[Rfam]
RNA: Glycine riboswitch aptamer
Organism: Calditerricola satsumensis
RNA sequence: CUCUGGAGAGUGUCCGCGACAGGCGGACCGCCCAAGGGGGAAUCCCGCGCGGAUGCGCGGGAGACACUCUCAGGUCAACGGACAGAG
Numbered sequence: 001c002u003c004u005g006g007a008g009a010g011u012g013u014c015c016g017c018g019a020c021a022g023g024c025g026g027a028c029c030g031c032c033c034a035a036g037g038g039g040g041a042a043u044c045c046c047g048c049g050c051g052g053a054u055g056c057g058c059g060g061g062a063g064a065c066a067c068u069c070u071c072a073g074g075u076c077a078a079c080g081g082a083c084a085g086a087g
Stems, first nucleotide, its partner, number of pairs: 001087005012028004030075003034070001037069003043062008